Small nucleolar RNA SNORA40: a 129-nucleotide RNA sequence from Neotoma lepida. From the family's description: The snoRNA ACA 40 belongs to the H/ACA family of snoRNAs and guides the pseudouridylation of 28S rRNA subunit at position U4565. NB This family has a high threshold value to exclude a large number of closely related sequences that do not appear to have conserved H and ACA boxes, and may be pseudogenes. It is annotated as an H/ACA-box small nucleolar RNA.

[Rfam]
RNA sequence: AACAGUUGGGAGUAUCUGUGUUAAGCUGGUUAAAAAAAAAGAUACAGAGUCAGUUGCAAAAUCAAUGCUCUUUUUCAACCCAGAACUCAUGAUUAGGUGUGACUUCUGAUGCACAUAAGAAGGACCACG
Numbered sequence: 001a002a003c004a005g006u007u008g009g010g011a012g013u014a015u016c017u018g019u020g021u022u023a024a025g026c027u028g029g030u031u032a033a034a035a036a037a038a039a040a041g042a043u044a045c046a047g048a049g050u051c052a053g054u055u056g057c058a059a060a061a062u063c064a065a066u067g068c069u070c071u072u073u074u075u076c077a078a079c080c081c082a083g084a085a086c087u088c089a090u091g092a093u094u095a096g097g098u099g100u101g102a103c104u105u106c107u108g109a110u111g112c113a114c115a116u117a118a119g120a121a122g123g124a125c126c127a128c129g
Stems, first nucleotide, its partner, number of pairs: 003056007014043004019038001021036001068123002071120004081108005087102004
The source organism's lineage runs through Eukaryota, Sarcopterygii, Glires, Myomorpha and Neotoma. The family has 28 seed sequences and 2,550 matches in Rfam 15.1. For this family Rfam cites "Mapping to nucleotide resolution of pseudouridine residues in large subunit ribosomal RNAs from representative eukaryotes, prokaryotes, archaebacteria, mitochondria and chloroplasts" (Ofengand and Bakin, J Mol Biol, 1997). The match comes from Rfam's covariance-model search (52 bits).